Shown here is a 251-nucleotide sequence, a member of the family "HNH endonuclease-associated RNA and ORF (HEARO) RNA". On this family, see Weinberg et al., Nature 2009: "Exceptional structured noncoding RNAs revealed by bacterial metagenome analysis". It scores 111 bits against the family's covariance model.

RNA sequence: GUCAACUGCCCCUCCCUAAAACCCGCCUAACGGCUCAGGUUUUAGGAAGGGGCUUGUCUAACAAGCCCUGGUUGACCAGAUCCCCGAUUAGGAGCUUAGGAAAGAUCGGGAAACGAUAGGAACGAAUUCAUAGUUACCCUGGAAUGCCGCCUCAGUUUCAGGCUCUAAGGAUGCCAGUUAAUCAGUCCUGAGAGGUAGGGACAGUGCUUGCAUCAUAAAACCAUUCCAUAUCUGAUCGAGAGGAAGCCGGA
Numbered sequence: 001g002u003c004a005a006c007u008g009c010c011c012c013u014c015c016c017u018a019a020a021a022c023c024c025g026c027c028u029a030a031c032g033g034c035u036c037a038g039g040u041u042u043u044a045g046g047a048a049g050g051g052g053c054u055u056g057u058c059u060a061a062c063a064a065g066c067c068c069u070g071g072u073u074g075a076c077c078a079g080a081u082c083c084c085c086g087a088u089u090a091g092g093a094g095c096u097u098a099g100g101a102a103a104g105a106u107c108g109g110g111a112a113a114c115g116a117u118a119g120g121a122a123c124g125a126a127u128u129c130a131u132a133g134u135u136a137c138c139c140u141g142g143a144a145u146g147c148c149g150c151c152u153c154a155g156u157u158u159c160a161g162g163c164u165c166u167a168a169g170g171a172u173g174c175c176a177g178u179u180a181a182u183c184a185g186u187c188c189u190g191a192g193a194g195g196u197a198g199g200g201a202c203a204g205u206g207c208u209u210g211c212a213u214c215a216u217a218a219a220a221c222c223a224u225u226c227c228a229u230a231u232c233u234g235a236u237c238g239a240g241a242g243g244a245a246g247c248c249g250g251a
Base pairs, nucleotide, nucleotide: 001076002075003074004073005072006071007070008069010052011051012049013048015046016045017044018043019042020041021040022039023038053065054064055063056062079237080236081235082234084109085108086107087106088105089104115232116231117230118229120227124226125225126224127223134168135167138162139161140160141159142158143157144156145155146247147246150243151242152241153240170214171213172212173211174210176208177207178206183204185202186201187200188199189198191196